[Rfam]
RNA sequence: GCACUCACGUUUCUCUUCAGGUCAUUUAAACCUUUCGCCUUUUACUAAAAGAGUUCCAUGGGUAGGAACAAGCUUGAGUCUUGAUUAAAUUUUUUGAGGCCUUGCGUAAGCCAGGCU
Numbered sequence: 001g002c003a004c005u006c007a008c009g010u011u012u013c014u015c016u017u018c019a020g021g022u023c024a025u026u027u028a029a030a031c032c033u034u035u036c037g038c039c040u041u042u043u044a045c046u047a048a049a050a051g052a053g054u055u056c057c058a059u060g061g062g063u064a065g066g067a068a069c070a071a072g073c074u075u076g077a078g079u080c081u082u083g084a085u086u087a088a089a090u091u092u093u094u095u096g097a098g099g100c101c102u103u104g105c106g107u108a109a110g111c112c113a114g115g116c117u
Stems, first nucleotide, its partner, number of pairs: 003079004009069006016062004028055002032051002034048002097117001099116004104111001
RNA: U5 spliceosomal RNA
Organism: Ovis aries